[Rfam]
RNA sequence: UAUUUUCUUCGGGGCAGGGUGUAAUUCCCGACCGGCGGUGACAAACAUUUAAGGUUUGAAGUCCGUGACCCGCUUAUAGCGGUGGAUCUAGUGAGAUUCUAGAGCCGACAGUGAAAGUCUGGAUGGGAGAAGAAAACU
Numbered sequence: 001u002a003u004u005u006u007c008u009u010c011g012g013g014g015c016a017g018g019g020u021g022u023a024a025u026u027c028c029c030g031a032c033c034g035g036c037g038g039u040g041a042c043a044a045a046c047a048u049u050u051a052a053g054g055u056u057u058g059a060a061g062u063c064c065g066u067g068a069c070c071c072g073c074u075u076a077u078a079g080c081g082g083u084g085g086a087u088c089u090a091g092u093g094a095g096a097u098u099c100u101a102g103a104g105c106c107g108a109c110a111g112u113g114a115a116a117g118u119c120u121g122g123a124u125g126g127g128a129g130a131a132g133a134a135a136a137c138u
Base pairs, nucleotide, nucleotide: 003136004135005134006133007132008131009130010129017029018028019027031118032117033107034106035066036065037064038063061105062104070082071081087103088102089101090100091099109121110120111119
Rfam assigns this 138-nucleotide RNA sequence from Oceanobacillus sp. J11TS1 to the family "FMN riboswitch aptamer (RFN element)". A reference for the family is Vitreschak et al. (2002), "Regulation of riboflavin biosynthesis and transport genes in bacteria by transcriptional and translational attenuation", Nucleic Acids Res. Taxonomically the source falls in Oceanobacillus (Bacteria, Bacillati, Bacillota, Bacillaceae).